RNA: Bacterial RNase P class A
Organism: Sphingomonas taxi
RNA sequence: UCAGAGGGUCGGGCGGCCGCGGGUAUCUCUUGAGAUACGCGAGGAAAGUCCGGGCUCCGCGGAACGACGGUGCCGGGUAACGCCCGGCGGGGGCGACCCCAGGGAAAGUGCCACAGAGAGCAGACGGCGCCGGCUUCGGCCACGCCACGGUGAAAGGGUGCGGUAAGAGCGCACCGCGCGCCUGGUAACAGGGGCGGCACGGCAAACCCCACCGGGAGCAAGACCGAAUAGGGGCGGCACAUGGGCUUCGUUUCAGCUCGUCGCCCGGGUUGGUUGCUUGAGGCGGCGCGCGAGCGUCGUCCUAGAGGAAUGGUCGCCUAUCCUCCGCAAGGGGGUGGACAGAACCCGGCUUACAGACCCUCUGACAUC
Numbered sequence: 001u002c003a004g005a006g007g008g009u010c011g012g013g014c015g016g017c018c019g020c021g022g023g024u025a026u027c028u029c030u031u032g033a034g035a036u037a038c039g040c041g042a043g044g045a046a047a048g049u050c051c052g053g054g055c056u057c058c059g060c061g062g063a064a065c066g067a068c069g070g071u072g073c074c075g076g077g078u079a080a081c082g083c084c085c086g087g088c089g090g091g092g093g094c095g096a097c098c099c100c101a102g103g104g105a106a107a108g109u110g111c112c113a114c115a116g117a118g119a120g121c122a123g124a125c126g127g128c129g130c131c132g133g134c135u136u137c138g139g140c141c142a143c144g145c146c147a148c149g150g151u152g153a154a155a156g157g158g159u160g161c162g163g164u165a166a167g168a169g170c171g172c173a174c175c176g177c178g179c180g181c182c183u184g185g186u187a188a189c190a191g192g193g194g195c196g197g198c199a200c201g202g203c204a205a206a207c208c209c210c211a212c213c214g215g216g217a218g219c220a221a222g223a224c225c226g227a228a229u230a231g232g233g234g235c236g237g238c239a240c241a242u243g244g245g246c247u248u249c250g251u252u253u254c255a256g257c258u259c260g261u262c263g264c265c266c267g268g269g270u271u272g273g274u275u276g277c278u279u280g281a282g283g284c285g286g287c288g289c290g291c292g293a294g295c296g297u298c299g300u301c302c303u304a305g306a307g308g309a310a311u312g313g314u315c316g317c318c319u320a321u322c323c324u325c326c327g328c329a330a331g332g333g334g335g336u337g338g339a340c341a342g343a344a345c346c347c348g349g350c351u352u353a354c355a356g357a358c359c360c361u362c363u364g365a366c367a368u369c
Stems, first nucleotide, its partner, number of pairs: 001365010011354001012318007020041002023038006046352003050349005055218004063252004068214005073087005088102001089100004103209002108207002110203003125149002127145003132141003157175006176198001177196003181192004222275004232266006243259005282301008